[Rfam]
Rfam assigns this 269-nucleotide RNA from Bacillus taeanensis to the family "Bacterial large signal recognition particle RNA". By type it is a non-coding RNA gene. The base pairs follow the family's consensus structure, which is taken from published work. A reference for the family is Regalia et al. (2002), "Prediction of signal recognition particle RNA genes", Nucleic Acids Res. Its family is annotated with signal recognition particle, plasma membrane targeting and SRP-dependent cotranslational protein targeting to membrane, signal sequence recognition in the Gene Ontology.

RNA sequence: UGGUGCUAGUUGGGGAGCUAGCGGUGCCCUGUACUCGCAAUCCGCUGCAGCGAGGAUGAAUUCCUUUCUGAGGUUAAGAUGUUUUAAGGUUAGCGUUUAAGAGGCAGUUAUGAAGAUUUCGGUCCUGUACAAUGAAACUUCAUGAAUCCUGUCAGGUUCGGAAGAAAGCAGCAGUAAGUGAAAUGUUUUCAUGUGCUGCAGGGAAGCCGAGAUUGAGCUGAUUUCUGAAACAGCACUUAAAAUAAUUUUAAUCGAAGUAAGGUGCGCCG
Numbered sequence: 001u002g003g004u005g006c007u008a009g010u011u012g013g014g015g016a017g018c019u020a021g022c023g024g025u026g027c028c029c030u031g032u033a034c035u036c037g038c039a040a041u042c043c044g045c046u047g048c049a050g051c052g053a054g055g056a057u058g059a060a061u062u063c064c065u066u067u068c069u070g071a072g073g074u075u076a077a078g079a080u081g082u083u084u085u086a087a088g089g090u091u092a093g094c095g096u097u098u099a100a101g102a103g104g105c106a107g108u109u110a111u112g113a114a115g116a117u118u119u120c121g122g123u124c125c126u127g128u129a130c131a132a133u134g135a136a137a138c139u140u141c142a143u144g145a146a147u148c149c150u151g152u153c154a155g156g157u158u159c160g161g162a163a164g165a166a167a168g169c170a171g172c173a174g175u176a177a178g179u180g181a182a183a184u185g186u187u188u189u190c191a192u193g194u195g196c197u198g199c200a201g202g203g204a205a206g207c208c209g210a211g212a213u214u215g216a217g218c219u220g221a222u223u224u225c226u227g228a229a230a231c232a233g234c235a236c237u238u239a240a241a242a243u244a245a246u247u248u249u250a251a252u253c254g255a256a257g258u259a260a261g262g263u264g265c266g267c268c269g
Stems, first nucleotide, its partner, number of pairs: 001269006009057003012030004017025003034054005063262004068257002072253005080244009093234001097230002101226001104223001106219003115214009124202006130193002133191005139182005149174004157166003